A member of the RNA family "Small nucleolar RNA SNORD116" from Dipodomys ordii, 104 nucleotides long. By type it is a C/D-box small nucleolar RNA. The family's consensus secondary structure was predicted with PFOLD. On this family, see Cavaille et al., Proc Natl Acad Sci U S A 2000: "Identification of brain-specific and imprinted small nucleolar RNA genes exhibiting an unusual genomic organization". The family has 48 seed sequences and 3,260 matches in Rfam 15.1. It scores 69 bits against the family's covariance model.
[Rfam]
RNA sequence: GAAUUCAUGAUGAUACCCCCCACCCCCUAAAAAAAAUUCCUUGGAAAAGCUGAACAAAAUGAGUGAAAACUCAUUCCUGUCUCUCUCAUCGGUGACUGAGGUCC
Numbered sequence: 001g002a003a004u005u006c007a008u009g010a011u012g013a014u015a016c017c018c019c020c021c022a023c024c025c026c027c028u029a030a031a032a033a034a035a036a037u038u039c040c041u042u043g044g045a046a047a048a049g050c051u052g053a054a055c056a057a058a059a060u061g062a063g064u065g066a067a068a069a070c071u072c073a074u075u076c077c078u079g080u081c082u083c084u085c086u087c088a089u090c091g092g093u094g095a096c097u098g099a100g101g102u103c104c
Stems, first nucleotide, its partner, number of pairs: 001104001003102003036064004041057003